RNA sequence: GGGCAAACGGUGGAUGCCUUGGUGUCAAGUGACGAAGAAAGACGUGGACAGCUGCGAUAAGCUUCGGGGAGGGGCUGAACACCCUUUGAUCCGGAGAUGUCUGAAUGGGGAAACCCGGCAUGGUUAAUACCGUGUCAUCCCUGAAUGAAUACAUAGUUCAGGGAGGGUAACGGGGAGAACUGAAACAUCUUAGUACCCCCAGGAGUAGAAAGUAAUAACGAUUUUCCGAGUAGCGGCGAGCGAAAGGGAACCAGCCCAAACCGAUUACGUGUCAAGCCCGAAAGCGUUGCGUAAUUGGGGUCGCGGGAUAUGAUUAGCAGGUGUUUCGGAACCUGCGGAGAGUGAUAAAAUCAAUUGUUAGCUGAAGAAGCUGGAAAGCUUCACCAUAGAAGGUGACAGUCCUGUAAGCAAAAGCAAUCGAUCUCUCUUAUCGUACUCCCAAGUACUGCGGAACACGAGAAAUUCUGUGGGAAUUUGUGAGGACCAUCUCAUAAGGCUAAAUACGACUUGACAACCGAUAGUGUACCAGUACCGUGAGGGAAAGGUGAAAAGAACCCCUGUUAGGGGAGUGAAAUAGUACCUGAAACCGUUUGCUUACAA
Numbered sequence: 001g002g003g004c005a006a007a008c009g010g011u012g013g014a015u016g017c018c019u020u021g022g023u024g025u026c027a028a029g030u031g032a033c034g035a036a037g038a039a040a041g042a043c044g045u046g047g048a049c050a051g052c053u054g055c056g057a058u059a060a061g062c063u064u065c066g067g068g069g070a071g072g073g074g075c076u077g078a079a080c081a082c083c084c085u086u087u088g089a090u091c092c093g094g095a096g097a098u099g100u101c102u103g104a105a106u107g108g109g110g111a112a113a114c115c116c117g118g119c120a121u122g123g124u125u126a127a128u129a130c131c132g133u134g135u136c137a138u139c140c141c142u143g144a145a146u147g148a149a150u151a152c153a154u155a156g157u158u159c160a161g162g163g164a165g166g167g168u169a170a171c172g173g174g175g176a177g178a179a180c181u182g183a184a185a186c187a188u189c190u191u192a193g194u195a196c197c198c199c200c201a202g203g204a205g206u207a208g209a210a211a212g213u214a215a216u217a218a219c220g221a222u223u224u225u226c227c228g229a230g231u232a233g234c235g236g237c238g239a240g241c242g243a244a245a246g247g248g249a250a251c252c253a254g255c256c257c258a259a260a261c262c263g264a265u266u267a268c269g270u271g272u273c274a275a276g277c278c279c280g281a282a283a284g285c286g287u288u289g290c291g292u293a294a295u296u297g298g299g300g301u302c303g304c305g306g307g308a309u310a311u312g313a314u315u316a317g318c319a320g321g322u323g324u325u326u327c328g329g330a331a332c333c334u335g336c337g338g339a340g341a342g343u344g345a346u347a348a349a350a351u352c353a354a355u356u357g358u359u360a361g362c363u364g365a366a367g368a369a370g371c372u373g374g375a376a377a378g379c380u381u382c383a384c385c386a387u388a389g390a391a392g393g394u395g396a397c398a399g400u401c402c403u404g405u406a407a408g409c410a411a412a413a414g415c416a417a418u419c420g421a422u423c424u425c426u427c428u429u430a431u432c433g434u435a436c437u438c439c440c441a442a443g444u445a446c447u448g449c450g451g452a453a454c455a456c457g458a459g460a461a462a463u464u465c466u467g468u469g470g471g472a473a474u475u476u477g478u479g480a481g482g483a484c485c486a487u488c489u490c491a492u493a494a495g496g497c498u499a500a501a502u503a504c505g506a507c508u509u510g511a512c513a514a515c516c517g518a519u520a521g522u523g524u525a526c527c528a529g530u531a532c533c534g535u536g537a538g539g540g541a542a543a544g545g546u547g548a549a550a551a552g553a554a555c556c557c558c559u560g561u562u563a564g565g566g567g568a569g570u571g572a573a574a575u576a577g578u579a580c581c582u583g584a585a586a587c588c589g590u591u592u593g594c595u596u597a598c599a600a
Base pairs, nucleotide, nucleotide: 001596002595003594004593005592006591007590008589009588010587016581017545018544021516022515023513024512025511026510027509028508029507030505031504033166040102041101042100043056044055045054062096063095064094065093066092067091068090071084072083073082107116108115109114117136118135119134120133121132122131123130138164139163140162141161142160143159144158145157146156171202172200173199174198175197182189183188212219213218222501223250224249225248226247227246233241234240253498254497255496256495261298262297263296264295265294266293267292268291269290270289271288305440306439307438310434311433312432313431314430348424350422351421352420354418355417356416357415358414359413361409362408363407367382368381369380370379371378385389391403392402393401446470447469448468449467450466451465452464453463477492478491479490480489481488532539533538555567556566557565558564
Record summary
Bacterial large subunit ribosomal RNA: a 600-nucleotide part of an RNA from Desulfotignum phosphitoxidans. It scores 2933 bits against the family's covariance model. Rfam links the family to the GO terms ribosome and structural constituent of ribosome.